The record is a 113-nucleotide sequence from Lactobacillus gasseri, which matches "Ribosomal protein L20 leader" in Rfam. NCBI's taxonomy places the organism under Bacteria, Bacillota, Bacilli, Lactobacillaceae, Lactobacillus gasseri. It is one of the family's seed sequences.
[Rfam]
RNA sequence: GAGAACAAGAAGAAGCUCCCGCUUCUCGCCUAAGUUAAUAUUACCUCUGGGCUGAUCGAUAAUAUCUGUUGAUUAAAAGCGGGCGUUAACUUUGCCCGCUUUUUUCUUGUCCU
Numbered sequence: 001g002a003g004a005a006c007a008a009g010a011a012g013a014a015g016c017u018c019c020c021g022c023u024u025c026u027c028g029c030c031u032a033a034g035u036u037a038a039u040a041u042u043a044c045c046u047c048u049g050g051g052c053u054g055a056u057c058g059a060u061a062a063u064a065u066c067u068g069u070u071g072a073u074u075a076a077a078a079g080c081g082g083g084c085g086u087u088a089a090c091u092u093u094g095c096c097c098g099c100u101u102u103u104u105u106c107u108u109g110u111c112c113u
Base pairs, nucleotide, nucleotide: 011026012025013024014023015022016021028052029051030050033046034045036043037042078100079099080098081097082096083095084094085093
Its family is annotated with regulation of gene expression in the Gene Ontology.